[Rfam]
RNA sequence: GGACAACGACAGGGGAGCGCCACACCGGCGCUGAGAGUGCGCCCGGCGCAGACCCUCGAACCUGACCCGGUUAGGACCGGUGGAGGAAGUCGAGUUCUCACUGAG
Numbered sequence: 001g002g003a004c005a006a007c008g009a010c011a012g013g014g015g016a017g018c019g020c021c022a023c024a025c026c027g028g029c030g031c032u033g034a035g036a037g038u039g040c041g042c043c044c045g046g047c048g049c050a051g052a053c054c055c056u057c058g059a060a061c062c063u064g065a066c067c068c069g070g071u072u073a074g075g076a077c078c079g080g081u082g083g084a085g086g087a088a089g090u091c092g093a094g095u096u097c098u099c100a101c102u103g104a105g
Base pairs, nucleotide, nucleotide: 007092008091009090010089011056012055013054014053017031018030019029020028021027038050039049040048041047042046061086062085063084067080068079069078070077
Notes: The family of this 105-nucleotide sequence from Micrococcus terreus is "TPP riboswitch aptamer (THI element)". The base pairs follow the family's consensus structure, which is taken from published work. NCBI's taxonomy places the organism under Bacteria, Actinomycetota, Actinomycetes, Micrococcales, Micrococcus. A search with the family's covariance model found it, with a score of 61 bits.